[Rfam]
RNA sequence: GUGCAUCCAGUAGGAAUUGAACCUACGACAUCGUCAAUUAUGAGUUGGGUGCUUUAAGACUCUCAACUAUGUGUGU
Numbered sequence: 001g002u003g004c005a006u007c008c009a010g011u012a013g014g015a016a017u018u019g020a021a022c023c024u025a026c027g028a029c030a031u032c033g034u035c036a037a038u039u040a041u042g043a044g045u046u047g048g049g050u051g052c053u054u055u056a057a058g059a060c061u062c063u064c065a066a067c068u069a070u071g072u073g074u075g076u
Base pairs, nucleotide, nucleotide: 003076004075005074006073008071010026011025012024013023014022040070041069042068044067045066046065047064048063049062051060

Record summary:
Rfam assigns this 76-nucleotide sequence from Trifolium medium to the family "Plastid-ycf2 5UTR RNA". Plastid ycf2 is a non-coding RNA (ncRNA) recognised in plastids. It was found in the prime untranslated region (5UTR) of ycf2 genes, it presents a tRNA-like motif which suggests it can be involved in mRNA maturation, particularly involved in defining the precise 5' end of the transcript. The family's RNA type in Rfam is cis-regulatory element. A search with the family's covariance model found it, with a score of 69 bits. The family's consensus secondary structure was predicted with LocARNA.